S4-Clostridia ribosomal protein leader: a 50-nucleotide RNA.
RNA sequence: GAAAGACCGGAAUAUUCCGGUUGGGUUAGAAAUAACCCCAAUCAAUUAGU
Numbered sequence: 001g002a003a004a005g006a007c008c009g010g011a012a013u014a015u016u017c018c019g020g021u022u023g024g025g026u027u028a029g030a031a032a033u034a035a036c037c038c039c040a041a042u043c044a045a046u047u048a049g050u
Stems, first nucleotide, its partner, number of pairs: 005022007023038005
Its Rfam clan is "Ribosomal Protein S4 Leader clan". On this family, see Eckert and Weinberg, BMC Microbiol 2020: "Discovery of 20 novel ribosomal leader candidates in bacteria and archaea".